About this RNA: Shown here is a 491-nucleotide part of an RNA from Colletotrichum tanaceti, a member of the family "Eukaryotic large subunit ribosomal RNA". Gene Ontology terms of the family: ribosome and structural constituent of ribosome. NCBI's taxonomy places the organism under Eukaryota, Pezizomycotina, leotiomyceta, sordariomyceta, Colletotrichum destructivum species complex.
[Rfam]
RNA sequence: UAGAAUAAUGUAGAUAAGGGAAGUCAGCAAAACAGAUCUGUAACUUCAGGAUAAGGAUUAGCUCUAAGGGUUAGGUAUGUUAGGCUUUAGGCAGAUGGCUUGGGAGUAGGUUGCCACUAGCUAGGCAACUAGCUAGAGGCUUCUAGUAUCUAGGUUCUAACGCCUUUAGCAGGCUUUAGCUGUCUGGCGUACGGUUAACAACUAACUUAGAACUAGUACAGAUAAGGGGAAUCUAACUGUCUAAUUAAAACAUAGCAUUGCGAUGGCUAGAAAGUGGUGUUAACGCAAUGUGAUUUCUGCCCAGUGCUCUAAAUGUUAAAGUGAAGUAAUUUAACUAAGCGUAGGUAAAUGGCGGGAGUAACUAUAACUCUCUUAAGGUAGCUAAAUGCCUUGUUAUCUAAUUAGUGAUGCAUAUAAAUGGAUUAAUGAGAUUCCUACUGUCCCUAUCUACUAUCUAGCGAAACUAUAGCUAAGGGAAUAGGCUUAGCAGA
Numbered sequence: 001u002a003g004a005a006u007a008a009u010g011u012a013g014a015u016a017a018g019g020g021a022a023g024u025c026a027g028c029a030a031a032a033c034a035g036a037u038c039u040g041u042a043a044c045u046u047c048a049g050g051a052u053a054a055g056g057a058u059u060a061g062c063u064c065u066a067a068g069g070g071u072u073a074g075g076u077a078u079g080u081u082a083g084g085c086u087u088u089a090g091g092c093a094g095a096u097g098g099c100u101u102g103g104g105a106g107u108a109g110g111u112u113g114c115c116a117c118u119a120g121c122u123a124g125g126c127a128a129c130u131a132g133c134u135a136g137a138g139g140c141u142u143c144u145a146g147u148a149u150c151u152a153g154g155u156u157c158u159a160a161c162g163c164c165u166u167u168a169g170c171a172g173g174c175u176u177u178a179g180c181u182g183u184c185u186g187g188c189g190u191a192c193g194g195u196u197a198a199c200a201a202c203u204a205a206c207u208u209a210g211a212a213c214u215a216g217u218a219c220a221g222a223u224a225a226g227g228g229g230a231a232u233c234u235a236a237c238u239g240u241c242u243a244a245u246u247a248a249a250a251c252a253u254a255g256c257a258u259u260g261c262g263a264u265g266g267c268u269a270g271a272a273a274g275u276g277g278u279g280u281u282a283a284c285g286c287a288a289u290g291u292g293a294u295u296u297c298u299g300c301c302c303a304g305u306g307c308u309c310u311a312a313a314u315g316u317u318a319a320a321g322u323g324a325a326g327u328a329a330u331u332u333a334a335c336u337a338a339g340c341g342u343a344g345g346u347a348a349a350u351g352g353c354g355g356g357a358g359u360a361a362c363u364a365u366a367a368c369u370c371u372c373u374u375a376a377g378g379u380a381g382c383u384a385a386a387u388g389c390c391u392u393g394u395u396a397u398c399u400a401a402u403u404a405g406u407g408a409u410g411c412a413u414a415u416a417a418a419u420g421g422a423u424u425a426a427u428g429a430g431a432u433u434c435c436u437a438c439u440g441u442c443c444c445u446a447u448c449u450a451c452u453a454u455c456u457a458g459c460g461a462a463a464c465u466a467u468a469g470c471u472a473a474g475g476g477a478a479u480a481g482g483c484u485u486a487g488c489a490g491a
Base pairs, nucleotide, nucleotide: 001457002456003455004454010451011450012449013448014447015446016445018443019442020441035059036058037057038056039055044049060214061213063211064210065209066208067207068206069203070202071201072200075192076191077190078189079188080187081186082185083184084170085169086168089165090164091163097156098155099154100153101152102151103150104149106147107146109144110143113140114139115138117136118135119134120133121132122131123130124129227436228435229434230433231432232431233430234428235427238252239251240250255291256290257289258288259287260286261285262284266278267277268276269275295422296421297420299353300352301351304350305349306346307345308344311342314341315340316339322333323332324331325330354372355371356370357369358368359367373377393409394408395407396406397405470487471486472485473484474483
The base pairs follow the family's consensus structure, which is taken from published work.